[Rfam]
RNA: Fluoride riboswitch aptamer (crcB RNA motif)
RNA sequence: CGGUGCGAUGGGGAUGGAGUCCCCCGAUAACCGCCUUGUCAGAAGGCUGAUGGCUCCUGCCGAGCG
Numbered sequence: 001c002g003g004u005g006c007g008a009u010g011g012g013g014a015u016g017g018a019g020u021c022c023c024c025c026g027a028u029a030a031c032c033g034c035c036u037u038g039u040c041a042g043a044a045g046g047c048u049g050a051u052g053g054c055u056c057c058u059g060c061c062g063a064g065c066g
Stems, first nucleotide, its partner, number of pairs: 010025004016057006033047004